[Rfam]
RNA sequence: UGAAUGAUAAAAAUGGCGCAAAUAUAGCGCCAUUUUUAUAGGUUAAAAACGUUGCUUUUCAUAUUCUGAUGCGGACAGUCAGUGAUCAUAUCGCGCUACUUCAGGAUGAUGUAGAUCCGGAGAACGCUACAGAAGAAGAGGCAUUGUUGCUGGAAAAUGGAAGAAGUUUCAGGUUUUGUUGUCCCUGAAAAACGAAGCCCC
Numbered sequence: 001u002g003a004a005u006g007a008u009a010a011a012a013a014u015g016g017c018g019c020a021a022a023u024a025u026a027g028c029g030c031c032a033u034u035u036u037u038a039u040a041g042g043u044u045a046a047a048a049a050c051g052u053u054g055c056u057u058u059u060c061a062u063a064u065u066c067u068g069a070u071g072c073g074g075a076c077a078g079u080c081a082g083u084g085a086u087c088a089u090a091u092c093g094c095g096c097u098a099c100u101u102c103a104g105g106a107u108g109a110u111g112u113a114g115a116u117c118c119g120g121a122g123a124a125c126g127c128u129a130c131a132g133a134a135g136a137a138g139a140g141g142c143a144u145u146g147u148u149g150c151u152g153g154a155a156a157a158u159g160g161a162a163g164a165a166g167u168u169u170c171a172g173g174u175u176u177u178g179u180u181g182u183c184c185c186u187g188a189a190a191a192a193c194g195a196a197g198c199c200c201c
Stems, first nucleotide, its partner, number of pairs: 008038001011035001016030001018028001066132003071127002078096002082094004100121003104118004